Source information:
A member of the RNA family "MIR5565 microRNA precursor family" from Miscanthus lutarioriparius, 109 nucleotides long. The organism belongs to Miscanthus, within Eukaryota. The family has 7 seed sequences and 3,346 matches in Rfam 15.1.

RNA sequence: GUAGUCGGAUUCAUAUCAAUCCACAUGUGAUGGGGCGGAUUGGAGUAGAACUUGAACUAAAUUCCACCUCAAUCUACCCCAACACAUGUGGAUUGAGGUGAAUCCGAUG
Numbered sequence: 001g002u003a004g005u006c007g008g009a010u011u012c013a014u015a016u017c018a019a020u021c022c023a024c025a026u027g028u029g030a031u032g033g034g035g036c037g038g039a040u041u042g043g044a045g046u047a048g049a050a051c052u053u054g055a056a057c058u059a060a061a062u063u064c065c066a067c068c069u070c071a072a073u074c075u076a077c078c079c080c081a082a083c084a085c086a087u088g089u090g091g092a093u094u095g096a097g098g099u100g101a102a103u104c105c106g107a108u109g
Stems, first nucleotide, its partner, number of pairs: 004108011016096014031081002035077001037075007045067002